[Rfam]
RNA sequence: AACCCCGCGCUAUGCGUGGGGUUCCGUAAAGCUUAUAGCUAUGGUAAGAGAAACCCUCCGUUUGUUAAAAUAAACUUGCGGCCUGACAACUGCAAGGAAACAAACAGAGGG
Number, nucleotide and partner (000 for none) at each position: 001a023002a022003c021004c020005c019006c018007g017008c016009g015010c014011u000012a000013u000014g010015c009016g008017u007018g006019g005020g004021g003022u002023u001024c000025c000026g000027u000028a042029a000030a040031g039032c038033u037034u000035a000036u000037a033038g032039c031040u030041a000042u028043g000044g000045u000046a000047a000048g000049a000050g000051a000052a000053a000054c111055c110056c109057u108058c107059c000060g105061u104062u103063u102064g101065u100066u099067a000068a000069a000070a000071u000072a000073a000074a000075c096076u095077u094078g093079c092080g091081g090082c000083c000084u000085g000086a000087c000088a000089a000090c081091u080092g079093c078094a077095a076096g075097g000098a000099a066100a065101c064102a063103a062104a061105c060106a000107g058108a057109g056110g055111g054
The record is a 111-nucleotide RNA sequence from Christensenella minuta, which matches "STnc490 Hfq binding RNA" in Rfam. It is annotated as a small RNA. The organism belongs to Christensenella, within Bacteria. It scores 66 bits against the family's covariance model.